[Rfam]
RNA sequence: UCGUCAGGCUCAGUCCCCUCCCGAUAAAGCCCUAAAUAGGAUCCUCCUGGGGGGCGACCCUAGUUU
Numbered sequence: 001u002c003g004u005c006a007g008g009c010u011c012a013g014u015c016c017c018c019u020c021c022c023g024a025u026a027a028a029g030c031c032c033u034a035a036a037u038a039g040g041a042u043c044c045u046c047c048u049g050g051g052g053g054g055c056g057a058c059c060c061u062a063g064u065u066u
Stems, first nucleotide, its partner, number of pairs: 003064002007060002010057002013055007023046002031040003
RNA: mir-484 microRNA precursor family
Organism: Tupaia belangeri